[Rfam]
RNA: Fluoride riboswitch aptamer (crcB RNA motif)
Organism: Ruminococcaceae bacterium D16
RNA sequence: AAUUCUCUUGGGAAUGAAGUUCUCCCUUGGUGAAUACCUAAACCGCUGAUAAGGCUGAUGACUUCUGUGAGCAC
Numbered sequence: 001a002a003u004u005c006u007c008u009u010g011g012g013a014a015u016g017a018a019g020u021u022c023u024c025c026c027u028u029g030g031u032g033a034a035u036a037c038c039u040a041a042a043c044c045g046c047u048g049a050u051a052a053g054g055c056u057g058a059u060g061a062c063u064u065c066u067g068u069g070a071g072c073a074c
Stems, first nucleotide, its partner, number of pairs: 010026004016065006045055003